RNA: mir-146 microRNA precursor family
Organism: Xenopus tropicalis
RNA sequence: AUGGCAGGGCCCGGCUCUGAGAACUGAAUUCCAUGGACUGUUCCACUCACAGCACCCUCAGUCCACAGUGUUCAGUGCUCCAGUCUGGCUGCCACUA
Numbered sequence: 001a002u003g004g005c006a007g008g009g010c011c012c013g014g015c016u017c018u019g020a021g022a023a024c025u026g027a028a029u030u031c032c033a034u035g036g037a038c039u040g041u042u043c044c045a046c047u048c049a050c051a052g053c054a055c056c057c058u059c060a061g062u063c064c065a066c067a068g069u070g071u072u073c074a075g076u077g078c079u080c081c082a083g084u085c086u087g088g089c090u091g092c093c094a095c096u097a
Stems, first nucleotide, its partner, number of pairs: 010088002013085003020079002023076005035064006